RNA: MIR2617 microRNA precursor family
RNA sequence: AAGUAGUGUGACAUGCCCGUUUGGACUUACUCUGAUGAGUUUUAUUUAUUAUUUAAUUGCUUUGGGAUAACGGGGUGUUACAUGAGG
Numbered sequence: 001a002a003g004u005a006g007u008g009u010g011a012c013a014u015g016c017c018c019g020u021u022u023g024g025a026c027u028u029a030c031u032c033u034g035a036u037g038a039g040u041u042u043u044a045u046u047u048a049u050u051a052u053u054u055a056a057u058u059g060c061u062u063u064g065g066g067a068u069a070a071c072g073g074g075g076u077g078u079u080a081c082a083u084g085a086g087g
Stems, first nucleotide, its partner, number of pairs: 004085001006083009016074006